[Rfam]
RNA sequence: AUAAGCAAGUAGAAGCACCCGCUUCUCACCUGAUUGACACAUCCGUUUGUAGUUGGCAGGUUACGAUGAAUUCUUAAUGUAUACAAUCGUAGUGUGGGUGUGUUAGCAUCCACACUUUUUUAUUUUU
Dot-bracket structure: ..........((((((....)))))).(((.....(((((........)).)))....)))...............................(((((((((....))))))))).............
RNA: Ribosomal protein L20 leader
Organism: Metabacillus sediminilitoris